[Rfam]
RNA sequence: AAGGUAACGGAGUAAUAACCAAUUUCUUGUUCUCUCAAGAAAUUGGUAUUGCCCCUUUAC
Numbered sequence: 001a002a003g004g005u006a007a008c009g010g011a012g013u014a015a016u017a018a019c020c021a022a023u024u025u026c027u028u029g030u031u032c033u034c035u036c037a038a039g040a041a042a043u044u045g046g047u048a049u050u051g052c053c054c055c056u057u058u059a060c
Base pairs, nucleotide, nucleotide: 006058007057009055010054012052013051014050015049016048017047022043024041025040026039027038028037029036
Description: A member of the RNA family "Plastid-psbA-4 3UTR RNA" from Hemsleya lijiangensis, 60 nucleotides long. The sequence is in the family's curated seed alignment. The organism belongs to Hemsleya, within Eukaryota. Rfam classes the family as a cis-regulatory element. Rfam describes the family as follows. Plastid psbA-4 is a non-coding RNA (ncRNA) present in plastids. It was identified in inverted repeat sequences in the 3 prime untranslate region (3UTR) of photosystem II quinone-binding protein (psbA).